[Rfam]
Shown here is a 589-nucleotide part of an RNA from Percolomonas cosmopolitus, a member of the family "Eukaryotic small subunit ribosomal RNA". The family has 90 seed sequences and 75,755 matches in Rfam 15.1. The sequence is in the family's curated seed alignment. Its Rfam clan is "SSU clan".
RNA sequence: UGACGGAAAAGCACCACCAGGUGUGGAUUCUGCGGCUUAAUUCGACUCAACGCGGGGAAACUUGCCAAGUUAGGAUACAAGUAGGAUUGACAGAGUAAAGCUCUUUCUUGAUUUUGUAGUUGGUGGUGCAUGGCCAUUCUUAGUUCGUGGAGUGAUUUGUCUUGUUAAUUCAGAUAACGAGCGAGACCUAAGCCAAUAUUUUUUAUGCUUUUUAUUUUCUUGUAAAAUAGAAUGACAAAAACUUCUAUUCAAAAACUAGAAAUAGUCGAAUACGAAGGUUAGUUAUUGGGAUACCUUAUUUUUUAUUACCGUUCAAAGGAAGGUGAAACGUUAGGCAAUAAUAGGUCUGUGAUGCCCUUAGAUAUCUUGGAAUGCACGCGGGAUACAAUAAUUAAGAUAAUAAGUUUAUUUUAAUUUACAUUGUGUUUUUUGCAUUAAUUGUAAGUAAAACCUGUUUCGAAAGGAAUGGGAAAUCUCCAAAUCUUAAUUUUGACAAGGAUUGUCUCUUGUAACAGAGACAUGAAAGAGGAAUACCUAGUAGGCGUGAGUCAACACCUCGCACCGAUUAAGUCCCUGCUUUUUGUACACA
Numbered sequence: 001u002g003a004c005g006g007a008a009a010a011g012c013a014c015c016a017c018c019a020g021g022u023g024u025g026g027a028u029u030c031u032g033c034g035g036c037u038u039a040a041u042u043c044g045a046c047u048c049a050a051c052g053c054g055g056g057g058a059a060a061c062u063u064g065c066c067a068a069g070u071u072a073g074g075a076u077a078c079a080a081g082u083a084g085g086a087u088u089g090a091c092a093g094a095g096u097a098a099a100g101c102u103c104u105u106u107c108u109u110g111a112u113u114u115u116g117u118a119g120u121u122g123g124u125g126g127u128g129c130a131u132g133g134c135c136a137u138u139c140u141u142a143g144u145u146c147g148u149g150g151a152g153u154g155a156u157u158u159g160u161c162u163u164g165u166u167a168a169u170u171c172a173g174a175u176a177a178c179g180a181g182c183g184a185g186a187c188c189u190a191a192g193c194c195a196a197u198a199u200u201u202u203u204u205a206u207g208c209u210u211u212u213u214a215u216u217u218u219c220u221u222g223u224a225a226a227a228u229a230g231a232a233u234g235a236c237a238a239a240a241a242c243u244u245c246u247a248u249u250c251a252a253a254a255a256c257u258a259g260a261a262a263u264a265g266u267c268g269a270a271u272a273c274g275a276a277g278g279u280u281a282g283u284u285a286u287u288g289g290g291a292u293a294c295c296u297u298a299u300u301u302u303u304u305a306u307u308a309c310c311g312u313u314c315a316a317a318g319g320a321a322g323g324u325g326a327a328a329c330g331u332u333a334g335g336c337a338a339u340a341a342u343a344g345g346u347c348u349g350u351g352a353u354g355c356c357c358u359u360a361g362a363u364a365u366c367u368u369g370g371a372a373u374g375c376a377c378g379c380g381g382g383a384u385a386c387a388a389u390a391a392u393u394a395a396g397a398u399a400a401u402a403a404g405u406u407u408a409u410u411u412u413a414a415u416u417u418a419c420a421u422u423g424u425g426u427u428u429u430u431u432g433c434a435u436u437a438a439u440u441g442u443a444a445g446u447a448a449a450a451c452c453u454g455u456u457u458c459g460a461a462a463g464g465a466a467u468g469g470g471a472a473a474u475c476u477c478c479a480a481a482u483c484u485u486a487a488u489u490u491u492g493a494c495a496a497g498g499a500u501u502g503u504c505u506c507u508u509g510u511a512a513c514a515g516a517g518a519c520a521u522g523a524a525a526g527a528g529g530a531a532u533a534c535c536u537a538g539u540a541g542g543c544g545u546g547a548g549u550c551a552a553c554a555c556c557u558c559g560c561a562c563c564g565a566u567u568a569a570g571u572c573c574c575u576g577c578u579u580u581u582u583g584u585a586c587a588c589a
Stems, first nucleotide, its partner, number of pairs: 001587002003584003007581007016571002020535005025386001027384008035375002041056004065370005071364001076118005089107002092104003122358002125356004131352001132350001133346003136342003143182006149158003162173003188334004193289006202282002205279001292325006299318004390489007403476002451470002455466004501520007541563002544560005